A member of the RNA family "Plastid-ycf3 group II-D1 intron" from Croton tiglium, 47 nucleotides long.
[Rfam]
RNA sequence: UCCCUUCUGUCGUGUAUCCUCGAUUAAUGCAGUCUCAGAUGCUUCAA
Numbered sequence: 001u002c003c004c005u006u007c008u009g010u011c012g013u014g015u016a017u018c019c020u021c022g023a024u025u026a027a028u029g030c031a032g033u034c035u036c037a038g039a040u041g042c043u044u045c046a047a
Stems, first nucleotide, its partner, number of pairs: 009024004031043003
Its family is annotated with Group II intron splicing in the Gene Ontology. NCBI's taxonomy places the organism under Eukaryota, Streptophytina, Magnoliopsida, rosids, Croton. The base pairs follow the family's consensus structure, which was predicted with LocARNA.